FMN riboswitch aptamer (RFN element): a 132-nucleotide RNA from Gemmobacter fulvus.
Lineage of the source: Bacteria > Pseudomonadati > Alphaproteobacteria > Paracoccaceae > Gemmobacter.
The family's consensus secondary structure is taken from published work.
[Rfam]
RNA sequence: GCGCGUUCUCGGGGCGGGGUGCGAUUCCCCACCGGCGGUGAUAGCCCGCGAGCGCCCUGUCGCAAGACAGGGGUCAGCAGAUCCGGUGAAAUUCCGGGGCCGACGGUAUAGUCCGGAUGUGAGAGAAUGGGC
Numbered sequence: 001g002c003g004c005g006u007u008c009u010c011g012g013g014g015c016g017g018g019g020u021g022c023g024a025u026u027c028c029c030c031a032c033c034g035g036c037g038g039u040g041a042u043a044g045c046c047c048g049c050g051a052g053c054g055c056c057c058u059g060u061c062g063c064a065a066g067a068c069a070g071g072g073g074u075c076a077g078c079a080g081a082u083c084c085g086g087u088g089a090a091a092u093u094c095c096g097g098g099g100c101c102g103a104c105g106g107u108a109u110a111g112u113c114c115g116g117a118u119g120u121g122a123g124a125g126a127a128u129g130g131g132c
Stems, first nucleotide, its partner, number of pairs: 004129007017029003031112002033102002035049004044100002052078002082098005104115003